Background:
This 87-nucleotide sequence from Carnobacterium antarcticum belongs to the Rfam family "BsrC". The source organism's lineage runs through Bacteria, Bacillati, Lactobacillales, Carnobacteriaceae and Carnobacterium. By type it is a small RNA. The family has 29 seed sequences and 572 matches in Rfam 15.1.
RNA sequence: UCUCAUUUAAACGACAUAAACCCUACCUCUUUUAUGUCCUUACAGUUCUAAAACUGUGCCAGUGUGGAUAAACUUCUUUAAAAACUA
Numbered sequence: 001u002c003u004c005a006u007u008u009a010a011a012c013g014a015c016a017u018a019a020a021c022c023c024u025a026c027c028u029c030u031u032u033u034a035u036g037u038c039c040u041u042a043c044a045g046u047u048c049u050a051a052a053a054c055u056g057u058g059c060c061a062g063u064g065u066g067g068a069u070a071a072a073c074u075u076c077u078u079u080a081a082a083a084a085c086u087a
Base pairs, nucleotide, nucleotide: 035066036065039062040061041058042057043056044055045054046053047052